[Rfam]
RNA sequence: UUUGGUACCGAGGGGGGCCUGCGGCAGCAGGCUGAGACCGGAUUGGUGCCAUCCGGCGACCCUUUGAACCUGAUCCGGGUCAUACCGGCGCAGGGACGGAAAGGUGAGACCAG
Numbered sequence: 001u002u003u004g005g006u007a008c009c010g011a012g013g014g015g016g017g018c019c020u021g022c023g024g025c026a027g028c029a030g031g032c033u034g035a036g037a038c039c040g041g042a043u044u045g046g047u048g049c050c051a052u053c054c055g056g057c058g059a060c061c062c063u064u065u066g067a068a069c070c071u072g073a074u075c076c077g078g079g080u081c082a083u084a085c086c087g088g089c090g091c092a093g094g095g096a097c098g099g100a101a102a103g104g105u106g107a108g109a110c111c112a113g
Stems, first nucleotide, its partner, number of pairs: 006101001008099003011063004016057001017032005039056001041054001069094004075088004